[Rfam]
RNA: MIR5269 microRNA precursor family
RNA sequence: UUUGGUAAAAUCAAUGUAGGACCUAUACUUUAGAAAUGGAACCCACAUAAAGCGGUGACACAUACAUUGAUUUUACUUAA
Numbered sequence: 001u002u003u004g005g006u007a008a009a010a011u012c013a014a015u016g017u018a019g020g021a022c023c024u025a026u027a028c029u030u031u032a033g034a035a036a037u038g039g040a041a042c043c044c045a046c047a048u049a050a051a052g053c054g055g056u057g058a059c060a061c062a063u064a065c066a067u068u069g070a071u072u073u074u075a076c077u078u079a080a
Stems, first nucleotide, its partner, number of pairs: 001080002004077015024057002026054001028052005